This 58-nucleotide RNA from Caenispirillum bisanense belongs to the Rfam family "terC RNA".
RNA sequence: CAUCAGGUCCGGGCCCCUCUGGCGACGACGGCGGUUGUCGCGAUGUCGGACCUUCGUU
Numbered sequence: 001c002a003u004c005a006g007g008u009c010c011g012g013g014c015c016c017c018u019c020u021g022g023c024g025a026c027g028a029c030g031g032c033g034g035u036u037g038u039c040g041c042g043a044u045g046u047c048g049g050a051c052c053u054u055c056g057u058u
Base pairs, nucleotide, nucleotide: 006052007051008050009049010048011047012046022041023040024039025038026037027036028035029034

The family's consensus secondary structure is taken from published work. It is annotated as a cis-regulatory element.